[Rfam]
RNA sequence: GGGGGCGAAUAGGGUUCGACGUUUCUACUGGACUCCGAAGCGCAUGCCAAGAUUGUAGUAAUUCUUGUAAAACAUACUACAAAAAAAAUAGUUGCAAAUAACGACAACUACGCUUUAGCAGCUUAAUGCUAACCGAUGUAAGAAUUGACUGUGGUUUGAAGCAUCGGCUAAACACACAGUCUAGCCAAGCUAUAUUGCUUGGAUAUAGUUUGGUAAAACUUAAUCAAGCUAGCUUUUAUGCCCUGCUCUUCGGGUAAUAAAAGUUAAAAACAAUAGAAUGAGCUAAGCAUGUAGAAGUUAGGCUGAAGGAUUAGCGGACGCGGGUUCAAUUCCCGCCGCCUCCACCA
Numbered sequence: 001g002g003g004g005g006c007g008a009a010u011a012g013g014g015u016u017c018g019a020c021g022u023u024u025c026u027a028c029u030g031g032a033c034u035c036c037g038a039a040g041c042g043c044a045u046g047c048c049a050a051g052a053u054u055g056u057a058g059u060a061a062u063u064c065u066u067g068u069a070a071a072a073c074a075u076a077c078u079a080c081a082a083a084a085a086a087a088a089u090a091g092u093u094g095c096a097a098a099u100a101a102c103g104a105c106a107a108c109u110a111c112g113c114u115u116u117a118g119c120a121g122c123u124u125a126a127u128g129c130u131a132a133c134c135g136a137u138g139u140a141a142g143a144a145u146u147g148a149c150u151g152u153g154g155u156u157u158g159a160a161g162c163a164u165c166g167g168c169u170a171a172a173c174a175c176a177c178a179g180u181c182u183a184g185c186c187a188a189g190c191u192a193u194a195u196u197g198c199u200u201g202g203a204u205a206u207a208g209u210u211u212g213g214u215a216a217a218a219c220u221u222a223a224u225c226a227a228g229c230u231a232g233c234u235u236u237u238a239u240g241c242c243c244u245g246c247u248c249u250u251c252g253g254g255u256a257a258u259a260a261a262a263g264u265u266a267a268a269a270a271c272a273a274u275a276g277a278a279u280g281a282g283c284u285a286a287g288c289a290u291g292u293a294g295a296a297g298u299u300a301g302g303c304u305g306a307a308g309g310a311u312u313a314g315c316g317g318a319c320g321c322g323g324g325u326u327c328a329a330u331u332c333c334c335g336c337c338g339c340c341u342c343c344a345c346c347a
Stems, first nucleotide, its partner, number of pairs: 001343007020316004026310001028308002033305001036302001038299002043291005048067005054081007115132006133167006139158004147181006182216001184214007197229005232264008242254003245283004249278003320336005
Dot-bracket structure: (((((((............((((..(.((...(..(.((...((((([[[[[.(((((((..]]]]].......))))))).................................((((((......))))))((((((((((....[[[[[[..))))...))))))........]]]]]](.(((((((......[[[[[......))))))).)........]]]]]..((((((((..((([[[[[[[)))..))))))))...........]]].]]]]...)))))......))..)..).)).)..))))...(((((.......))))))))))))....
RNA: transfer-messenger RNA
Organism: uncultured marine gamma proteobacterium EBAC20E09